[Rfam]
The family of this 111-nucleotide RNA sequence from Peribacillus loiseleuriae is "SAM riboswitch aptamer (S box leader)". Gene Ontology term of the family: regulation of gene expression. Rfam describes the family as follows. The SAM riboswitch is found upstream of a number of genes which code for proteins involved in methionine or cysteine biosynthesis in Gram-positive bacteria.

Nucleotides: 111
Base pairs, nucleotide, nucleotide: 001111002110003109004108005107006106007105008104013042014041015040016039017038021031022030023029026083027082028081043076044075045074046073048072049071051067052066053065054064055063080103085100086099087098088097089096090095
Number, partner (000 for none) and nucleotide at each position: 001111u002110u003109c004108u005107u006106a007105u008104c009000a010000a011000g012000a013042g014041a015040g016039g017038u018000c019000g020000a021031g022030g023029g024000a025000c026083u027082g028081g029023c030022c031021c032000u033000g034000u035000g036000a037000c038017g039016c040015c041014u042013c043076a044075g045074c046073a047000a048072c049071c050000a051067g052066c053065a054064a055063u056000c057000g058000u059000a060000a061000a062000u063055a064054u065053u066052g067051c068000c069000a070000a071049g072048g073046u074045g075044c076043u077000a078000a079000u080103u081028c082027c083026a084000u085100c086099a087098a088097g089096c090095u091000a092000u093000u094000u095090a096089g097088c098087u099086u100085g101000a102000u103080a104008g105007a106006u107005a108004a109003g110002a111001a